[Rfam]
RNA sequence: ACAUUAAGCUUCUAGGGUUCCGGCAGACCAUCGUUUGUGUCUGGUCCAAGAGAGGCUGGCUGUCAGAAGAUUUUACUGCUGCAGUUACACGGCGGGAAAAAAGCCCGGGAGAG
Dot-bracket structure: ......((((((..((...(((((((((....))))))..).)).))....))))))((((((.................)))))).(.[...(((.......))).)..]..
Guanidine-I riboswitch aptamer: a 113-nucleotide sequence from Leptolyngbyaceae cyanobacterium JSC-12. About the family: This family represents a conserved RNA structure found upstream of the ykkC and yxkD genes in Bacillus subtilis and related genes in other bacteria. The function of this family is unclear although it has been suggested that it may function to switch on efflux pumps and detoxification systems in response to harmful environmental molecules. Pairs were carried over by alignment from the consensus structure. A search with the family's covariance model found it, with a score of 83 bits.